RNA sequence: AAAAAGGCUCUUUUAAGAGCCACUCAAUCAUUAAUAAAAAGGCACAU
Numbered sequence: 001a002a003a004a005a006g007g008c009u010c011u012u013u014u015a016a017g018a019g020c021c022a023c024u025c026a027a028u029c030a031u032u033a034a035u036a037a038a039a040a041g042g043c044a045c046a047u
Stems, first nucleotide, its partner, number of pairs: 006021006
Background
Shown here is a 47-nucleotide RNA sequence from Synaphobranchus kaupii, a member of the family "Histone 3' UTR stem-loop". The organism belongs to Synaphobranchus, within Eukaryota. On this family, see Dominski and Marzluff, Gene 1999: "Formation of the 3' end of histone mRNA". The family's consensus secondary structure is taken from published work. Its family is annotated with mRNA 3'-end processing by stem-loop binding and cleavage in the Gene Ontology. Rfam classes the family as a cis-regulatory element. The mRNAs of metazoan histone genes lack a poly-A tail. 3' end processing occurs at a site between a highly conserved stem-loop (modelled by this family) and a purine rich region around 20 nts downstream (the histone downstream element, or HDE). The stem-loop is bound by a 31 kDa stem-loop binding protein (SLBP - also termed the histone hairpin binding protein, or HBP). Together with U7 snRNA binding of the HDE, SLBP binding nucleate s the formation of the processing complex. The histone 3' UTR stem-loop is also involved in nucleocytoplasmic transport of the mRNA, and in stability regulation and translation efficiency in the cytoplasm. A search with the family's covariance model found it, with a score of 38 bits.